[Rfam]
RNA: Bacterial large subunit ribosomal RNA, nucleotides 1741 to 2102
Organism: Luteitalea pratensis
RNA sequence: AGUGAGAACACUCGUUUAGGAACUCGGCAAAUUGGCCCCGUAACUUCGGAAGAAGGGGUGCUCCCGUAGUGUGAUCCGGCUUGCCCGGUGAGCAUGAAGGAGUUGCAAUAAAGAGGCCCAGGCGACUGUUUACUAAAAACACAGGGCUCUGCAAAGUCGAAUACGACGUAUAGGGUCUGACGCCUGCCCGGUGCCGGAAGGUUAAAGGGAGAGGUUAGCUGCAAGGCGAAGCUUUGAACUGAAGCCCCGGUAAACGGCGGCCGUAACUAUAACGGUCCUAAGGUAGCGAAAUUCCUUGUCGGGUAAGUUCCGACCUGCACGAAUGGCGUAACGAUCUGGGCGCUGUCUCAACGAGUGACACU
Numbered sequence: 001a002g003u004g005a006g007a008a009c010a011c012u013c014g015u016u017u018a019g020g021a022a023c024u025c026g027g028c029a030a031a032u033u034g035g036c037c038c039c040g041u042a043a044c045u046u047c048g049g050a051a052g053a054a055g056g057g058g059u060g061c062u063c064c065c066g067u068a069g070u071g072u073g074a075u076c077c078g079g080c081u082u083g084c085c086c087g088g089u090g091a092g093c094a095u096g097a098a099g100g101a102g103u104u105g106c107a108a109u110a111a112a113g114a115g116g117c118c119c120a121g122g123c124g125a126c127u128g129u130u131u132a133c134u135a136a137a138a139a140c141a142c143a144g145g146g147c148u149c150u151g152c153a154a155a156g157u158c159g160a161a162u163a164c165g166a167c168g169u170a171u172a173g174g175g176u177c178u179g180a181c182g183c184c185u186g187c188c189c190g191g192u193g194c195c196g197g198a199a200g201g202u203u204a205a206a207g208g209g210a211g212a213g214g215u216u217a218g219c220u221g222c223a224a225g226g227c228g229a230a231g232c233u234u235u236g237a238a239c240u241g242a243a244g245c246c247c248c249g250g251u252a253a254a255c256g257g258c259g260g261c262c263g264u265a266a267c268u269a270u271a272a273c274g275g276u277c278c279u280a281a282g283g284u285a286g287c288g289a290a291a292u293u294c295c296u297u298g299u300c301g302g303g304u305a306a307g308u309u310c311c312g313a314c315c316u317g318c319a320c321g322a323a324u325g326g327c328g329u330a331a332c333g334a335u336c337u338g339g340g341c342g343c344u345g346u347c348u349c350a351a352c353g354a355g356u357g358a359c360a361c362u
Stems, first nucleotide, its partner, number of pairs: 001362004009357008018348003035059005044049001060103005074089003078085002104108001116341007123333002127141003144178008152168001156164002181328004186258003191255002193251005200246003206240002211235005218227002259277006278282001288315001298314006